[Rfam]
RNA sequence: GAUCAAUGAUGAAAAUAGCCAAAUCUGAGCAUCAAAACACCUGCCAGGCUACCUGAUGCAUGAGAAGUAAAAUUAAUUUA
Numbered sequence: 001g002a003u004c005a006a007u008g009a010u011g012a013a014a015a016u017a018g019c020c021a022a023a024u025c026u027g028a029g030c031a032u033c034a035a036a037a038c039a040c041c042u043g044c045c046a047g048g049c050u051a052c053c054u055g056a057u058g059c060a061u062g063a064g065a066a067g068u069a070a071a072a073u074u075a076a077u078u079u080a
Stems, first nucleotide, its partner, number of pairs: 029059005037050001040047001
Rfam assigns this 80-nucleotide RNA from Odobenus rosmarus to the family "Small nucleolar RNA U2-19". The literature on the family includes a 2004 paper in Curr Biol by Tycowski et al., "Guide RNAs with 5' Caps and Novel Box C/D snoRNA-like Domains for Modification of snRNAs in Metazoa". The family's RNA type in Rfam is C/D-box small nucleolar RNA. A search with the family's covariance model found it, with a score of 69 bits.